[Rfam]
RNA sequence: UCAUUCCUAUAUUUACGGCAAUGAAAAUGUUUACAAAAAAUAAUUGGUGGUGGAGUAUCUUACGAAUAACGUCGUGAGCUAGUCCUACCUAUAAUAAUAUUAGAAAAAGGCUUGUC
Numbered sequence: 001u002c003a004u005u006c007c008u009a010u011a012u013u014u015a016c017g018g019c020a021a022u023g024a025a026a027a028u029g030u031u032u033a034c035a036a037a038a039a040a041u042a043a044u045u046g047g048u049g050g051u052g053g054a055g056u057a058u059c060u061u062a063c064g065a066a067u068a069a070c071g072u073c074g075u076g077a078g079c080u081a082g083u084c085c086u087a088c089c090u091a092u093a094a095u096a097a098u099a100u101u102a103g104a105a106a107a108a109g110g111c112u113u114g115u116c
Base pairs, nucleotide, nucleotide: 036100038098040095041094043092044091046089047088049086050085052083056081057080059078060077061076062072063071064070
Background:
This 116-nucleotide RNA sequence from Croceivirga radicis belongs to the Rfam family "Bacteroidete tryptophan peptide leader RNA". Lineage of the source: Bacteria > Pseudomonadati > Flavobacteriia > Flavobacteriaceae > Croceivirga. The match comes from Rfam's covariance-model search (71 bits). Gene Ontology terms of the family: regulation of gene expression and S-adenosylmethionine metabolic process.